[Rfam]
RNA sequence: GGGGAUCUUCGGAGCCCUACAACCAACGGGAUCGCAGGUGCGAUCCCCUAGCUGACGGAAGACAGAGA
Numbered sequence: 001g002g003g004g005a006u007c008u009u010c011g012g013a014g015c016c017c018u019a020c021a022a023c024c025a026a027c028g029g030g031a032u033c034g035c036a037g038g039u040g041c042g043a044u045c046c047c048c049u050a051g052c053u054g055a056c057g058g059a060a061g062a063c064a065g066a067g068a
Stems, first nucleotide, its partner, number of pairs: 001018004006014001008012001029046007
Source information:
A member of the RNA family "L2-Alphaproteobacteria ribosomal protein leader" from Tabrizicola sp. TH137, 68 nucleotides long. A reference for the family is Eckert and Weinberg (2020), "Discovery of 20 novel ribosomal leader candidates in bacteria and archaea", BMC Microbiol. Lineage of the source: Bacteria > Pseudomonadati > Rhodobacterales > Paracoccaceae > Tabrizicola. The base pairs follow the family's consensus structure, which is taken from published work.